[Rfam]
RNA sequence: GAGUCUUGGGGAACAUUCAACGCUGUCGGUGAGUUUGUGGCUCUUCAAACCAUCGAGUGUUGAGUGAACCCAAAGGCUG
Numbered sequence: 001g002a003g004u005c006u007u008g009g010g011g012a013a014c015a016u017u018c019a020a021c022g023c024u025g026u027c028g029g030u031g032a033g034u035u036u037g038u039g040g041c042u043c044u045u046c047a048a049a050c051c052a053u054c055g056a057g058u059g060u061u062g063a064g065u066g067a068a069c070c071c072a073a074a075g076g077c078u079g
Base pairs, nucleotide, nucleotide: 002078003077004076005075006074007073014066015065016064017063018062019061020060021059022058026056027055028054029053030052031051033050034049035048036047
mir-181 microRNA precursor family: a 79-nucleotide RNA sequence from Liparis tanakae. It scores 61 bits against the family's covariance model. The family has 157 seed sequences and 3,490 matches in Rfam 15.1. Lineage of the source: Eukaryota > Actinopteri > Eurypterygia > Eupercaria > Liparis.